[Rfam]
RNA sequence: AUGGGGAGGUUGAACAUCUUGCCUAGUGCUGACAGGAAAUCUCUAUUUUAUACUAAGAAGGGCAGGCUGGUUGCAUAUGUAGGAUGUCUCAUCUCCCUGCCCAUUUCAUCA
Numbered sequence: 001a002u003g004g005g006g007a008g009g010u011u012g013a014a015c016a017u018c019u020u021g022c023c024u025a026g027u028g029c030u031g032a033c034a035g036g037a038a039a040u041c042u043c044u045a046u047u048u049u050a051u052a053c054u055a056a057g058a059a060g061g062g063c064a065g066g067c068u069g070g071u072u073g074c075a076u077a078u079g080u081a082g083g084a085u086g087u088c089u090c091a092u093c094u095c096c097c098u099g100c101c102c103a104u105u106u107c108a109u110c111a
Base pairs, nucleotide, nucleotide: 004097005096006095007094008093009092010091012089014087015086016085017084018083019082020081021080022079024077025076027075028074029073031071033069034068035067040062041061042060044058046057047056048055

This 111-nucleotide RNA from Pteropus alecto belongs to the Rfam family "mir-448 microRNA precursor family". For this family Rfam cites "Small RNA expression and strain specificity in the rat" (Linsen et al., BMC Genomics, 2010). Gene Ontology terms of the family: negative regulation of cell differentiation, miRNA-mediated post-transcriptional gene silencing and negative regulation of translation.